[Rfam]
RNA sequence: UUGUGUCUUAGAGGUUGCGAUGAAUAAAGAGUACCGCGAGGGAGAUGAAGGGAAUCCUAGAGCUCGUGGGAAAGGUAUCAUCGCCGAAGCCCAUAGGUUUACCUAGACCUAUGGUGCUGGGGCUAUAUUGAAUAAAUAUAGCACUGUCGCUGAUAGAUAACCCAGUUUAUCAGUGAUGCGCUACUUCACAA
Numbered sequence: 001u002u003g004u005g006u007c008u009u010a011g012a013g014g015u016u017g018c019g020a021u022g023a024a025u026a027a028a029g030a031g032u033a034c035c036g037c038g039a040g041g042g043a044g045a046u047g048a049a050g051g052g053a054a055u056c057c058u059a060g061a062g063c064u065c066g067u068g069g070g071a072a073a074g075g076u077a078u079c080a081u082c083g084c085c086g087a088a089g090c091c092c093a094u095a096g097g098u099u100u101a102c103c104u105a106g107a108c109c110u111a112u113g114g115u116g117c118u119g120g121g122g123c124u125a126u127a128u129u130g131a132a133u134a135a136a137u138a139u140a141g142c143a144c145u146g147u148c149g150c151u152g153a154u155a156g157a158u159a160a161c162c163c164a165g166u167u168u169a170u171c172a173g174u175g176a177u178g179c180g181c182u183a184c185u186u187c188a189c190a191a
Stems, first nucleotide, its partner, number of pairs: 009183003017084006024078003034069007088118003091114008119145002122142008147176011
RNA: Lysine riboswitch aptamer
Organism: Anaerosolibacter carboniphilus